Shown here is an 80-nucleotide sequence from Alkaliphilus serpentinus, a member of the family "c-di-GMP-I riboswitch aptamer".
The match comes from Rfam's covariance-model search (69 bits).
The organism belongs to Alkaliphilus, within Bacteria.
Rfam 15.1 lists 5,092 matches to the family in 1,772 species.
RNA sequence: CACGAUAAAUGGCAAACCAUGGGAAACUGUGGGACGCAAAGCUAAGGGCCUAAUCGAAAGAAUGGCAGCCAGCUACCGAA
Numbered sequence: 001c002a003c004g005a006u007a008a009a010u011g012g013c014a015a016a017c018c019a020u021g022g023g024a025a026a027c028u029g030u031g032g033g034a035c036g037c038a039a040a041g042c043u044a045a046g047g048g049c050c051u052a053a054u055c056g057a058a059a060g061a062a063u064g065g066c067a068g069c070c071a072g073c074u075a076c077c078g079a080a
Stems, first nucleotide, its partner, number of pairs: 012037002017032006040074004046070002048066003055060001